[Rfam]
RNA sequence: GAAAAGAGAAUAUUAUUUCCGUAGACAGUAGGUGCAGGUAAGCAUAACGUACAACAACCUACCGAGGGAUUCCGAUACAAUGCUUGUAAUGGGUCUUCCUGCGUCUACGGGAAGACUUUUCUUAUUAAUAA
Numbered sequence: 001g002a003a004a005a006g007a008g009a010a011u012a013u014u015a016u017u018u019c020c021g022u023a024g025a026c027a028g029u030a031g032g033u034g035c036a037g038g039u040a041a042g043c044a045u046a047a048c049g050u051a052c053a054a055c056a057a058c059c060u061a062c063c064g065a066g067g068g069a070u071u072c073c074g075a076u077a078c079a080a081u082g083c084u085u086g087u088a089a090u091g092g093g094u095c096u097u098c099c100u101g102c103g104u105c106u107a108c109g110g111g112a113a114g115a116c117u118u119u120u121c122u123u124a125u126u127a128a129u130a131a
Stems, first nucleotide, its partner, number of pairs: 028062006034043002093116009
RNA: Ribosomal protein L10 leader
Organism: Clostridium polyendosporum